[Rfam]
RNA sequence: AGGUGGACUAGGUCGGGCGGUUAGGCCCCGCUCGUCACCCCCGAGAUAGUCUUCAGGGGGGACCGAACCCCGGGUUCGUCCGGUCAGACCGGCACGGGCCUCGGGAGCCGACGUCGAAGCCUCGUCCUACGGGGACAGCGGUCCACGACGCUCGCCUGCAGGGGCGAUCCGUCGUGGUUGAUCGACGGUACCGGGUCAGGCGCGGAAGCGAGCAGCCCAUCGUCGGACGCCCGUCGCUCGUAGGGCCGCGGGGUGGAGGAGGCAACCGAGACUACCCGCGUCGGAACGCCGGGCAACCCCGGGCGUCCGCCA
Numbered sequence: 001a002g003g004u005g006g007a008c009u010a011g012g013u014c015g016g017g018c019g020g021u022u023a024g025g026c027c028c029c030g031c032u033c034g035u036c037a038c039c040c041c042c043g044a045g046a047u048a049g050u051c052u053u054c055a056g057g058g059g060g061g062a063c064c065g066a067a068c069c070c071c072g073g074g075u076u077c078g079u080c081c082g083g084u085c086a087g088a089c090c091g092g093c094a095c096g097g098g099c100c101u102c103g104g105g106a107g108c109c110g111a112c113g114u115c116g117a118a119g120c121c122u123c124g125u126c127c128u129a130c131g132g133g134g135a136c137a138g139c140g141g142u143c144c145a146c147g148a149c150g151c152u153c154g155c156c157u158g159c160a161g162g163g164g165c166g167a168u169c170c171g172u173c174g175u176g177g178u179u180g181a182u183c184g185a186c187g188g189u190a191c192c193g194g195g196u197c198a199g200g201c202g203c204g205g206a207a208g209c210g211a212g213c214a215g216c217c218c219a220u221c222g223u224c225g226g227a228c229g230c231c232c233g234u235c236g237c238u239c240g241u242a243g244g245g246c247c248g249c250g251g252g253g254u255g256g257a258g259g260a261g262g263c264a265a266c267c268g269a270g271a272c273u274a275c276c277c278g279c280g281u282c283g284g285a286a287c288g289c290c291g292g293g294c295a296a297c298c299c300c301g302g303g304c305g306u307c308c309g310c311c312a
Base pairs, nucleotide, nucleotide: 002311003310004309005308006307007306008305011064012063013062014061015033016032017031018030019029020028038060039059040058041057042056069303070302071301072300073299074298076296078294079293080292081291082289089284090283091282092281093280095278096277097276098275100270101269102268103267104266107263108262109261112258114256119254120253121252122251123250124249125248126244127243128242129241130240131239132238133237134235135234136233138231139229140228141179143177144176145175146174147173148172149171150170152167153166154165155164156163157162182226183225184224185223186222187221188220193218194217195216196215201210202209203208